[Rfam]
RNA sequence: GGAUAAGCUUGGUUUACCAAGCGAAAGGUCGAAUUCUACUGGAGGAUUCCGCUCCUUUGCGCUUUUUUUUCGGAUUAGGCGUGGAGGCGAAAGUCACCCUCCUCGCAUCGCAAGUUCGUGCUUGCGACUUACACGUAGGGCGAGGGGUGGGCGAAAGUUGCCAUGAGACCGUAACUUUCGUAGUCAUUGAUAAAGGGGCAGGUCUCGCUCUUUUGUCAUUGCGGUUGCCUAGAGGCAUGGUCGUUUACCGCGACUUUCCAGUGAAUGGAUCAACCUGUUGAUGCAGGUAGUGUGUAUCAUGCGAAUCGUUCUGCGAUUCGUAACUGCAGGUUGCUCCGGUUGAUCGAUAGAUUGUAAGGUUUGUCGGUCGUUUUAAUCGUGUCUUACAACACGAUGAUGUUACCCCAUAAUGACCUGAGAGGUAUGAGGCGAUACCCGUAUUGAUUGUUGAGCGAAGCCGGCUUGCCGGUGGAGUGAUGCUUUCAGAGUGGCUAGUGCACCAGACGGUAACCGAUGCACUGCCGAGUAGCGAAAGCCGUUCCUUUUGGAAUGGCCUAGUUGCCCAGAAGCCUCCCCUCAAAAUCGUUUCAGUCCAAAAUUGAUUCGGCGGCCCUGUCAUGAGGCCGAAACGAAGGCACGUACCCCUUCGAAUGGCGUCGGGGAGUCAGCGGCUAUAUAUGCGCCUAAUGCUGGCAUCCGGGAACGAGCGUGUGGCGAGCGCC
Number, nucleotide and partner (000 for none) at each position: 001g000002g000003a000004u000005a000006a000007g022008c021009u020010u019011g018012g000013u000014u000015u000016a000017c000018c011019a010020a009021g008022c007023g000024a000025a000026a000027g053028g052029u051030c000031g049032a048033a047034u046035u045036c044037u043038a000039c000040u000041g000042g000043a037044g036045g035046a034047u033048u032049c031050c000051g029052c028053u027054c000055c000056u000057u000058u000059g000060c081061g080062c079063u078064u077065u000066u000067u000068u000069u000070u000071c000072g000073g000074a000075u000076u000077a064078g063079g062080c061081g060082u000083g000084g000085a000086g000087g000088c000089g000090a000091a000092a000093g000094u000095c000096a000097c000098c000099c147100u146101c145102c144103u143104c142105g141106c000107a000108u000109c000110g125111c124112a123113a122114g121115u000116u000117c135118g134119u133120g132121c114122u113123u112124g111125c110126g000127a000128c000129u000130u000131a000132c120133a119134c118135g117136u000137a000138g000139g000140g000141c105142g104143a103144g102145g101146g100147g099148u000149g000150g000151g181152c180153g179154a178155a177156a000157g175158u174159u173160g000161c000162c000163a000164u000165g206166a205167g204168a203169c202170c201171g000172u000173a159174a158175c157176u000177u155178u154179c153180g152181u151182a000183g000184u000185c000186a000187u000188u000189g217190a216191u215192a214193a213194a212195g211196g210197g209198g208199c000200a000201g170202g169203u168204c167205u166206c165207g000208c198209u197210c196211u195212u194213u193214u192215g191216u190217c189218a000219u000220u252221g251222c250223g249224g248225u000226u237227g236228c235229c234230u000231a000232g000233a000234g229235g228236c227237a226238u000239g415240g414241u413242c412243g411244u410245u000246u000247a000248c224249c223250g222251c221252g220253a000254c000255u000256u000257u000258c000259c000260a000261g000262u000263g000264a000265a000266u000267g000268g000269a000270u000271c000272a000273a000274c000275c000276u000277g000278u000279u000280g000281a000282u000283g000284c000285a000286g335287g334288u333289a332290g331291u330292g000293u000294g000295u000296a000297u000298c000299a000300u000301g000302c000303g000304a000305a000306u000307c000308g000309u000310u000311c000312u000313g000314c000315g000316a000317u000318u000319c000320g000321u000322a000323a000324c000325u000326g000327c000328a000329g000330g291331u290332u289333g288334c287335u286336c000337c000338g000339g000340u000341u370342g369343a368344u367345c366346g365347a364348u363349a362350g361351a360352u359353u358354g000355u000356a000357a000358g353359g352360u351361u350362u349363g348364u347365c346366g345367g344368u343369c342370g341371u000372u000373u000374u000375a000376a395377u394378c393379g392380u391381g390382u389383c000384u000385u000386a000387c000388a000389a382390c381391a380392c379393g378394a377395u376396g000397a000398u000399g000400u000401u000402a000403c000404c000405c000406c000407a000408u000409a000410a244411u243412g242413a241414c240415c239416u000417g000418a000419g578420a577421g576422g000423u000424a000425u000426g573427a572428g571429g570430c000431g000432a000433u000434a000435c000436c000437c000438g000439u000440a000441u000442u485443g484444a483445u000446u000447g480448u479449u000450g000451a000452g000453c000454g000455a000456a000457g470458c469459c468460g467461g466462c000463u000464u000465g000466c461467c460468g459469g458470u457471g000472g000473a000474g000475u000476g000477a000478u000479g448480c447481u000482u000483u444484c443485a442486g000487a000488g000489u000490g000491g000492c000493u521494a520495g519496u518497g517498c516499a515500c000501c000502a000503g000504a000505c000506g000507g000508u000509a000510a000511c000512c000513g000514a000515u499516g498517c497518a496519c495520u494521g493522c000523c000524g000525a000526g562527u561528a560529g559530c558531g000532a556533a000534a000535g000536c553537c552538g551539u550540u549541c548542c547543u000544u000545u000546u000547g542548g541549a540550a539551u538552g537553g536554c000555c000556u532557a000558g530559u529560u528561g527562c526563c000564c000565a000566g000567a000568a000569g000570c429571c428572u427573c426574c000575c000576c421577u420578c419579a000580a000581a000582a000583u607584c606585g605586u000587u000588u602589c601590a600591g599592u598593c000594c000595a000596a000597a000598a592599u591600u590601g589602a588603u000604u000605c585606g584607g583608c626609g625610g624611c623612c622613c000614u000615g655616u654617c653618a652619u000620g000621a000622g612623g611624c610625c609626g608627a000628a000629a000630c649631g648632a647633a646634g645635g644636c000637a000638c000639g000640u000641a000642c000643c000644c635645c634646u633647u632648c631649g630650a000651a000652u618653g617654g616655c615656g000657u000658c000659g000660g000661g000662g000663a000664g694665u693666c692667a691668g690669c689670g688671g681672c680673u000674a000675u000676a000677u000678a000679u000680g672681c671682g000683c000684c000685u000686a000687a000688u670689g669690c668691u667692g666693g665694c664695a000696u000697c000698c000699g000700g000701g000702a000703a000704c000705g000706a000707g721708c720709g719710u000711g000712u000713g000714g000715c000716g000717a000718g000719c709720g708721c707722c000
Rfam assigns this 722-nucleotide sequence to the family "MISL RNA". The sequence is in the family's curated seed alignment. Rfam classes the family as a small RNA.